[Rfam]
RNA sequence: UGACACCCAACAAGAGGUAGCAAGAACUAGAGAGCCCUUGAGGGACUUUACUCGAAGAAGGGUCAACCGAAAUUCAAAAGUGAAACAAAGGUGAUUGCCACAGGGAACCUUUCUCAUAGAGACUGUUCAGUCAUAGUAACAAAAAUGGGGCAAGAAAUAAGUCAGCAUGAGUUAUAUGUGGAAUAGAUGAGAAAGGCUUUAAAGACUCAAGGAGUAAAGAUAAAAAUUCAGCAUUUAUUCUCAUGGUUUUUUUUUAUUAUUUUUAUUUUACUAAGGAGUUAUGUCCCU
Numbered sequence: 001u002g003a004c005a006c007c008c009a010a011c012a013a014g015a016g017g018u019a020g021c022a023a024g025a026a027c028u029a030g031a032g033a034g035c036c037c038u039u040g041a042g043g044g045a046c047u048u049u050a051c052u053c054g055a056a057g058a059a060g061g062g063u064c065a066a067c068c069g070a071a072a073u074u075c076a077a078a079a080g081u082g083a084a085a086c087a088a089a090g091g092u093g094a095u096u097g098c099c100a101c102a103g104g105g106a107a108c109c110u111u112u113c114u115c116a117u118a119g120a121g122a123c124u125g126u127u128c129a130g131u132c133a134u135a136g137u138a139a140c141a142a143a144a145a146u147g148g149g150g151c152a153a154g155a156a157a158u159a160a161g162u163c164a165g166c167a168u169g170a171g172u173u174a175u176a177u178g179u180g181g182a183a184u185a186g187a188u189g190a191g192a193a194a195g196g197c198u199u200u201a202a203a204g205a206c207u208c209a210a211g212g213a214g215u216a217a218a219g220a221u222a223a224a225a226a227u228u229c230a231g232c233a234u235u236u237a238u239u240c241u242c243a244u245g246g247u248u249u250u251u252u253u254u255u256a257u258u259a260u261u262u263u264u265a266u267u268u269u270a271c272u273a274a275g276g277a278g279u280u281a282u283g284u285c286c287c288u
Stems, first nucleotide, its partner, number of pairs: 006044003012039003050063003090132003093128002097123001098121001102114003134153001136151002140148001141146001158201003161197003210264006218252003222248002273288001275286003
Shown here is a 288-nucleotide sequence from Mus spicilegus, a member of the family "Mason-Pfizer monkey virus packaging signal".
The source organism's lineage runs through Eukaryota, Bilateria, Dipnotetrapodomorpha, Murinae and Mus.
The base pairs follow the family's consensus structure, which was predicted with PFOLD.
By type it is a cis-regulatory element.
A reference for the family is Mustafa et al. (2004), "Mutational analysis of the predicted secondary RNA structure of the Mason-Pfizer monkey virus packaging signal", Virus Res.
About the family: This family represents a group of sequences that are related to the Mason-Pfizer monkey virus (MPMV) packaging signal. The packaging signal is located in the 5' UTR and is required for specific RNA encapsidation.